[Rfam]
RNA sequence: UGAACCUUUAAAACAGUCCCGUGAGGCUGAGAAGGAACCGGAUACAGCAGAUGCAUAACCUGCUCUGUUAGAAGUGUACAUCCAUGCCCUCUCCCUGACCGGGAGAGGGCUUUCUUCAU
Number, nucleotide and partner (000 for none) at each position: 001u000002g000003a000004a000005c035006c034007u033008u032009u031010a000011a000012a000013a000014c029015a028016g027017u026018c025019c000020c000021g000022u000023g000024a000025g018026g017027c016028u015029g014030a000031g009032a008033a007034g006035g005036a000037a000038c000039c071040g000041g069042a068043u067044a066045c000046a064047g063048c062049a061050g060051a000052u000053g000054c000055a000056u000057a000058a000059c000060c050061u049062g048063c047064u046065c000066u044067g043068u042069u041070a000071g039072a000073a000074g000075u000076g000077u000078a000079c000080a000081u000082c000083c000084a112085u000086g110087c109088c108089c107090u106091c105092u104093c103094c102095c101096u000097g000098a000099c000100c000101g095102g094103g093104a092105g091106a090107g089108g088109g087110c086111u000112u084113u000114c000115u000116u000117c000118a000119u000
RNA: PyrR binding site